[Rfam]
Nucleotides: 111
Stems, first nucleotide, its partner, number of pairs: 002033002004030005010025005078107001080105001081103005087098003
Number, partner (000 for none) and nucleotide at each position: 001000a002033a003032g004030g005029u006028g007027g008026c009000a010025u011024c012023g013022a014021c015000a016000a017000g018000a019000a020000u021014g022013u023012c024011g025010a026008g027007c028006c029005a030004u031000a032003c033002u034000a035000u036000a037000u038000c039000c040000a041000u042000u043000u044000a045000g046000g047000u048000u049000a050000u051000c052000u053000u054000c055000u056000g057000u058000u059000u060000a061000a062000a063000a064000a065000a066000u067000u068000a069000a070000a071000u072000a073000g074000a075000a076000a077000g078107c079000u080105g081103c082102c083101c084100u085099g086000a087098u088097u089096u090000u091000u092000a093000a094000a095000a096089g097088a098087a099085c100084a101083g102082g103081g104000a105080c106000u107078g108000c109000u110000a111000a
The record is a 111-nucleotide sequence from Caldicellulosiruptor saccharolyticus, which matches "pan motif" in Rfam. The family's RNA type in Rfam is cis-regulatory element. Taxonomically the source falls in Caldicellulosiruptor saccharolyticus (Bacteria, Bacillota, Caldicellulosiruptorales, Caldicellulosiruptoraceae).